The record is a 129-nucleotide sequence from Cettia cetti, which matches "U11 spliceosomal RNA" in Rfam. The family's RNA type in Rfam is spliceosomal small nuclear RNA. The base pairs follow the family's consensus structure, which is taken from published work. Rfam links the family to the GO terms mRNA 5'-splice site recognition, pre-mRNA 5'-splice site binding and U11 snRNP. Clan: U1 clan.
RNA sequence: AAAAAGGGCUUCUGUCGUGCGUGGCACGGGGGGGCUCCGUGCCACCUCUGCGGAAUCGACAUCAAGAGAUUUCGGAAGCACAAUUUUUGUGAGUGAGGGCUGCCGGUAACCGCCUGUUCCGGCACCCCA
Dot-bracket structure: .......((((((((((....)))))(((((((.(.....).).))))))(((((((..........)))))))))))).................(((..(((((.(((.....)))))))).)))..